A member of the RNA family "Yersinia sRNA 276" from Enterobacter sp. 638, 195 nucleotides long. The family's consensus secondary structure was predicted with RNAfold.

RNA sequence: UACUGACAUCAGCGAUUCGUUUUGGGAACCGUUGCCGACCGCAAGGUACGAGUGCAUCCCCAGCUCUUUCAUCUGCUGUUCGCCGAUGACGCGGGUCACGAUAUUUUUGCUGUACGAAUCCGCCAAUUGACGUGCCUGAGAAGCCAGGUAGCCCGCGUUACAGAUAUUCGGCGGCAUAUUGCCGAGAUCUUUUGC
Numbered sequence: 001u002a003c004u005g006a007c008a009u010c011a012g013c014g015a016u017u018c019g020u021u022u023u024g025g026g027a028a029c030c031g032u033u034g035c036c037g038a039c040c041g042c043a044a045g046g047u048a049c050g051a052g053u054g055c056a057u058c059c060c061c062a063g064c065u066c067u068u069u070c071a072u073c074u075g076c077u078g079u080u081c082g083c084c085g086a087u088g089a090c091g092c093g094g095g096u097c098a099c100g101a102u103a104u105u106u107u108u109g110c111u112g113u114a115c116g117a118a119u120c121c122g123c124c125a126a127u128u129g130a131c132g133u134g135c136c137u138g139a140g141a142a143g144c145c146a147g148g149u150a151g152c153c154c155g156c157g158u159u160a161c162a163g164a165u166a167u168u169c170g171g172c173g174g175c176a177u178a179u180u181g182c183c184g185a186g187a188u189c190u191u192u193u194g195c
Stems, first nucleotide, its partner, number of pairs: 005189002012032003016028003020024001033043003050059001062077003078135002081132002084129004091123006099112002102109002136163003140159002143156002167186006